Overview: Apolipoprotein B (apoB) 5' UTR cis-regulatory element: a 108-nucleotide RNA from Aotus nancymaae. Rfam's curators write: This family represents an apolipoprotein B (apoB) cis regulatory element located in the 5' UTR of apoB mRNA. The element is important for optimal translation. A reference for the family is Pontrelli et al. (2004), "Translational control of apolipoprotein B mRNA: regulation via cis elements in the 5' and 3' untranslated regions", Biochemistry. Pairs were carried over by alignment from the consensus structure, which is taken from published work. Its family is annotated with positive regulation of translation in the Gene Ontology.

RNA sequence: AUUCUCACUGGGGCCUGCGGGGCUGAGCUGCCCUUCUCGGUUGCUGUCCCCGAGGAGCCCGUCCAGCCAGCAGGGCCGCAGCCCAGGAGCCGCCCCACCGCCGCCGGC
Numbered sequence: 001a002u003u004c005u006c007a008c009u010g011g012g013g014c015c016u017g018c019g020g021g022g023c024u025g026a027g028c029u030g031c032c033c034u035u036c037u038c039g040g041u042u043g044c045u046g047u048c049c050c051c052g053a054g055g056a057g058c059c060c061g062u063c064c065a066g067c068c069a070g071c072a073g074g075g076c077c078g079c080a081g082c083c084c085a086g087g088a089g090c091c092g093c094c095c096c097a098c099c100g101c102c103g104c105c106g107g108c
Stems, first nucleotide, its partner, number of pairs: 003013004016080005021068005027062001029061002033057008081108003089104002092101002